The family of this 62-nucleotide sequence from Indicator maculatus is "Small nucleolar RNA SNORD75". The base pairs follow the family's consensus structure, which was predicted with RNAalifold. Rfam 15.1 lists 767 matches to the family in 616 species. The organism belongs to Indicator, within Eukaryota.
RNA sequence: AGCCAAUGAUGGUUUUAAGAGUAGUGGACAGAAGUGGUUUCUGAAAACUCCAUACUGAGGCU
Number, nucleotide and partner (000 for none) at each position: 001a062002g061003c060004c059005a000006a000007u000008g000009a000010u000011g000012g000013u000014u000015u000016u000017a000018a000019g000020a000021g000022u000023a000024g000025u000026g000027g000028a000029c000030a000031g000032a000033a000034g000035u000036g000037g000038u000039u000040u000041c000042u000043g000044a000045a000046a000047a000048c000049u000050c000051c000052a000053u000054a000055c000056u000057g000058a000059g004060g003061c002062u001